[Rfam]
RNA sequence: GUGCAUGUAUUUGACAGACCCAAGACAGUUACUGUCUGCUUCUAAGAUUUCCAUUACAGAUGCAAGAAGAAAGUUUCCUUGUGCUUUCUGUCUGUAUGAUUGUGGCAGCGAAGAUUGAAUAGAGGAACACAGAA
Numbered sequence: 001g002u003g004c005a006u007g008u009a010u011u012u013g014a015c016a017g018a019c020c021c022a023a024g025a026c027a028g029u030u031a032c033u034g035u036c037u038g039c040u041u042c043u044a045a046g047a048u049u050u051c052c053a054u055u056a057c058a059g060a061u062g063c064a065a066g067a068a069g070a071a072a073g074u075u076u077c078c079u080u081g082u083g084c085u086u087u088c089u090g091u092c093u094g095u096a097u098g099a100u101u102g103u104g105g106c107a108g109c110g111a112a113g114a115u116u117g118a119a120u121a122g123a124g125g126a127a128c129a130c131a132g133a134a
Stems, first nucleotide, its partner, number of pairs: 002064005008058001012053002016050003020046001023041002026038003076126005084117001087114003092108004